This 312-nucleotide sequence from Cercophora samala belongs to the Rfam family "Group I catalytic intron". NCBI's taxonomy places the organism under Eukaryota, sordariomyceta, Sordariomycetes, Lasiosphaeriaceae, Cercophora.
[Rfam]
RNA sequence: UUAGUGGUGUGCCUGGCGAGGUUGGUCCGCCGAACUAAGUGCUAGUCCGCGCCCGAGGGCGCGGGCGACACCUUCAAACUGCGGGGAACUCCUAAAGCCCAUGCGACGAACCGUCCCCCGAAAGGGGGGCGGGGCCCGGUUAACAGCCUCAAGGGACGUAAAACUGCAUGGGAUGGCACAAUGGACAAUCCGCAGCCAAGCUCCUAAGGCCCCCUCUGGGGGGUACGGAGAAGGUUCAGAGACUUGACGGAGGUGGCUGUGGGCGCCGAAGCCCGCGGUUAAGAUAAAGUCCGGCCCGCUAGAGAUAGCUGG
Numbered sequence: 001u002u003a004g005u006g007g008u009g010u011g012c013c014u015g016g017c018g019a020g021g022u023u024g025g026u027c028c029g030c031c032g033a034a035c036u037a038a039g040u041g042c043u044a045g046u047c048c049g050c051g052c053c054c055g056a057g058g059g060c061g062c063g064g065g066c067g068a069c070a071c072c073u074u075c076a077a078a079c080u081g082c083g084g085g086g087a088a089c090u091c092c093u094a095a096a097g098c099c100c101a102u103g104c105g106a107c108g109a110a111c112c113g114u115c116c117c118c119c120g121a122a123a124g125g126g127g128g129g130c131g132g133g134g135c136c137c138g139g140u141u142a143a144c145a146g147c148c149u150c151a152a153g154g155g156a157c158g159u160a161a162a163a164c165u166g167c168a169u170g171g172g173a174u175g176g177c178a179c180a181a182u183g184g185a186c187a188a189u190c191c192g193c194a195g196c197c198a199a200g201c202u203c204c205u206a207a208g209g210c211c212c213c214c215u216c217u218g219g220g221g222g223g224u225a226c227g228g229a230g231a232a233g234g235u236u237c238a239g240a241g242a243c244u245u246g247a248c249g250g251a252g253g254u255g256g257c258u259g260u261g262g263g264c265g266c267c268g269a270a271g272c273c274c275g276c277g278g279u280u281a282a283g284a285u286a287a288a289g290u291c292c293g294g295c296c297c298g299c300u301a302g303a304g305a306u307a308g309c310u311g312g
Stems, first nucleotide, its partner, number of pairs: 001016004069255005075249001080194006090185003195235002201230004210222004239292001241291005257278008298309004